[Rfam]
RNA sequence: UUGUGUAGUUUCACAAAACUAUACACCCGCGAAAUGAUAUGGCUGUUACACCUAAGACGAGGACAUGGCAUCCUAUUACCAGCCAUCGCACGAAAUUAAUAUGAUGCCACGUCCUCAUCUUAGAUGGAACAACCACGUCAUCUCACAGGUGAAUCCAUUCAUCGAUAGUGUGGUU
Numbered sequence: 001u002u003g004u005g006u007a008g009u010u011u012c013a014c015a016a017a018a019c020u021a022u023a024c025a026c027c028c029g030c031g032a033a034a035u036g037a038u039a040u041g042g043c044u045g046u047u048a049c050a051c052c053u054a055a056g057a058c059g060a061g062g063a064c065a066u067g068g069c070a071u072c073c074u075a076u077u078a079c080c081a082g083c084c085a086u087c088g089c090a091c092g093a094a095a096u097u098a099a100u101a102u103g104a105u106g107c108c109a110c111g112u113c114c115u116c117a118u119c120u121u122a123g124a125u126g127g128a129a130c131a132a133c134c135a136c137g138u139c140a141u142c143u144c145a146c147a148g149g150u151g152a153a154u155c156c157a158u159u160c161a162u163c164g165a166u167a168g169u170g171u172g173g174u175u
Stems, first nucleotide, its partner, number of pairs: 004172004009167001011165002013162001016159002021154002024151004029146001031144002034141005040135003044131004050125001053122002056119002062113003068107005074101005085096002
Shown here is a 175-nucleotide RNA from Oryza barthii, a member of the family "MIR807 microRNA precursor family". Taxonomically the source falls in Oryza (Eukaryota, Streptophytina, Tracheophyta, Oryzoideae).